[Rfam]
RNA sequence: UACAAAUAAAAGAAAACUCCUCAAAAGAGUAAGACGCAAAGUUACAGGUCUAAGGUUUAACACUAAGAUGGCUGGGCUGCCUGA
Number, nucleotide and partner (000 for none) at each position: 001u000002a000003c000004a000005a000006a000007u000008a000009a000010a000011a000012g037013a000014a000015a000016a000017c000018u031019c000020c029021u028022c027023a000024a000025a000026a000027g022028a021029g020030u000031a018032a000033g000034a000035c000036g000037c012038a000039a000040a078041g077042u076043u075044a000045c074046a073047g072048g069049u068050c067051u000052a000053a000054g000055g063056u062057u000058u000059a000060a000061c000062a056063c055064u000065a000066a000067g050068a049069u048070g000071g000072c047073u046074g045075g043076g042077c041078u040079g000080c000081c000082u000083g000084a000

The family of this 84-nucleotide RNA sequence from Niallia nealsonii is "c-di-GMP-I riboswitch aptamer".
Rfam links the family to the GO term cyclic-di-GMP binding.